[Rfam]
RNA: Small nucleolar RNA SNORA75
Organism: Piaya cayana
RNA sequence: CACUUCUCAAUGAGCUCCAUCCUGCCAGCAAAUCCGUGGCAGCCUAUGGAUUCGCACGAGAAGAAUAUUAACUGCUCAGUACUGGCAAACUCACAAUGGGGCUCCCCCAUCGAUUGUAAUUAGCCAGUGCUGAUCUACAAGU
Numbered sequence: 001c002a003c004u005u006c007u008c009a010a011u012g013a014g015c016u017c018c019a020u021c022c023u024g025c026c027a028g029c030a031a032a033u034c035c036g037u038g039g040c041a042g043c044c045u046a047u048g049g050a051u052u053c054g055c056a057c058g059a060g061a062a063g064a065a066u067a068u069u070a071a072c073u074g075c076u077c078a079g080u081a082c083u084g085g086c087a088a089a090c091u092c093a094c095a096a097u098g099g100g101g102c103u104c105c106c107c108c109a110u111c112g113a114u115u116g117u118a119a120u121u122a123g124c125c126a127g128u129g130c131u132g133a134u135c136u137a138c139a140a141g142u
Stems, first nucleotide, its partner, number of pairs: 003063006014055002016050003022042005074135001076133004094112001096110004